[Rfam]
RNA sequence: GCGAGAGUUCGCGUAGCCUACCAAGCGUACCAAUACCGUAAUUCUGCACACGAGCGCGCGAGAGCGGCAUGACCCCCGUGUGCUCAUUUGCUGGGAUGCAGUGUUGGUUCGCUUGGUACGCCCCGCGCACUCUUGC
Numbered sequence: 001g002c003g004a005g006a007g008u009u010c011g012c013g014u015a016g017c018c019u020a021c022c023a024a025g026c027g028u029a030c031c032a033a034u035a036c037c038g039u040a041a042u043u044c045u046g047c048a049c050a051c052g053a054g055c056g057c058g059c060g061a062g063a064g065c066g067g068c069a070u071g072a073c074c075c076c077c078g079u080g081u082g083c084u085c086a087u088u089u090g091c092u093g094g095g096a097u098g099c100a101g102u103g104u105u106g107g108u109u110c111g112c113u114u115g116g117u118a119c120g121c122c123c124c125g126c127g128c129a130c131u132c133u134u135g136c
Stems, first nucleotide, its partner, number of pairs: 001136008010127004016121002019118009029108008038099003042095003046091003050087001052085009064073001
MIR8788 microRNA precursor family: a 136-nucleotide RNA from Phytophthora rubi. Rfam links the family to the GO terms RISC complex and miRNA-mediated post-transcriptional gene silencing. The family has 4 seed sequences and 16 matches in Rfam 15.1.